[Rfam]
About this RNA: The family of this 128-nucleotide RNA from Roseateles saccharophilus is "SAH (S-adenosyl-L-homocysteine) riboswitch aptamer". Lineage of the source: Bacteria > Pseudomonadati > Betaproteobacteria > Burkholderiales > Roseateles.
RNA sequence: GAUUCCGAGGAGCGUUGCAACCUCAGCACCUUUUGAGGCCAGGCUCGGACAACGAAGUUGCGGUGGAGACUUACUUGUACUCAAGUGAGUCGAAACCGACACUCCCUUUGCAACCGCGCUCACCCGCU
Numbered sequence: 001g002a003u004u005c006c007g008a009g010g011a012g013c014g015u016u017g018c019a020a021c022c023u024c025a026g027c028a029c030c031u032u033u034u035g036a037g038g039c040c041a042g043g044c045u046c047g048g049a050c051a052a053c054g055a056a057g058u059u060g061c062g063g064u065g066g067a068g069a070c071u072u073a074c075u076u077g078u079a080c081u082c083a084a085g086u087g088a089g090u091c092g093a094a095a096c097c098g099a100c101a102c103u104c105c106c107u108u109u110g111c112a113a114c115c116g117c118g119c120u121c122a123c124c125c126g127c128u
Base pairs, nucleotide, nucleotide: 004049005048006047007046008045021038022037023036024035025034026033